RNA sequence: GGCUGAUCCAAAGGCAGUGAGUUAUCUCAAUUGAUUGUUCACACUCAGUACAGAUUGAACUCCUUGUUCUACUCUUUCCCCGCUUCUCACUACUGUACUUGACUAGUCUUAA
Numbered sequence: 001g002g003c004u005g006a007u008c009c010a011a012a013g014g015c016a017g018u019g020a021g022u023u024a025u026c027u028c029a030a031u032u033g034a035u036u037g038u039u040c041a042c043a044c045u046c047a048g049u050a051c052a053g054a055u056u057g058a059a060c061u062c063c064u065u066g067u068u069c070u071a072c073u074c075u076u077u078c079c080c081c082g083c084u085u086c087u088c089a090c091u092a093c094u095g096u097a098c099u100u101g102a103c104u105a106g107u108c109u110u111a112a
Base pairs, nucleotide, nucleotide: 001108002107003106004105005104007102008101010100011099014096015095016091017090018089019088020087021086033074034073037070

Rfam assigns this 112-nucleotide RNA from Cavia porcellus to the family "Y RNA". Rfam's curators write: Y RNAs are components of the Ro ribonucleoprotein particle (Ro RNP), in association with Ro60 and La proteins. A search with the family's covariance model found it, with a score of 60 bits. For this family Rfam cites "Caenorhabditis elegans embryos contain only one major species of Ro RNP" (Van Horn et al., RNA, 1995).